[Rfam]
Shown here is a 98-nucleotide RNA from Domibacillus iocasae, a member of the family "pan motif". The match comes from Rfam's covariance-model search (57 bits). The family's RNA type in Rfam is cis-regulatory element.
RNA sequence: AGGGCGGUAUCAUAUUUGAGCUGCACCGCGUUCACCCAAAAUUCAUGCAUGAUAAUAAGACAAAUACUGCCUUGAUCCGGACGGACAGGGACAGAGGG
Numbered sequence: 001a002g003g004g005c006g007g008u009a010u011c012a013u014a015u016u017u018g019a020g021c022u023g024c025a026c027c028g029c030g031u032u033c034a035c036c037c038a039a040a041a042u043u044c045a046u047g048c049a050u051g052a053u054a055a056u057a058a059g060a061c062a063a064a065u066a067c068u069g070c071c072u073u074g075a076u077c078c079g080g081a082c083g084g085a086c087a088g089g090g091a092c093a094g095a096g097g098g
Stems, first nucleotide, its partner, number of pairs: 002027002004024005010019002067094003070090005076085003